[Rfam]
RNA sequence: GCGGUCUGAAAAUCACUUGGGCUCUCCUGUGGUCCCUGGUGAGAUAACUGUGCCUACAGCAAAGGGAACAUAAAGCUUACUGCCCACAGUGCCGUGUGGGGAGUGAAACCCAUGUUCCCAUAACC
Numbered sequence: 001g002c003g004g005u006c007u008g009a010a011a012a013u014c015a016c017u018u019g020g021g022c023u024c025u026c027c028u029g030u031g032g033u034c035c036c037u038g039g040u041g042a043g044a045u046a047a048c049u050g051u052g053c054c055u056a057c058a059g060c061a062a063a064g065g066g067a068a069c070a071u072a073a074a075g076c077u078u079a080c081u082g083c084c085c086a087c088a089g090u091g092c093c094g095u096g097u098g099g100g101g102a103g104u105g106a107a108a109c110c111c112a113u114g115u116u117c118c119c120a121u122a123a124c125c
Base pairs, nucleotide, nucleotide: 006050008048010045013042014041015040016039021034022032023031065118067116068115069114070113071112077106078105079104080103081102085098086097087096
A member of the RNA family "Small nucleolar RNA ACA64" from Melopsittacus undulatus, 125 nucleotides long. The match comes from Rfam's covariance-model search (78 bits).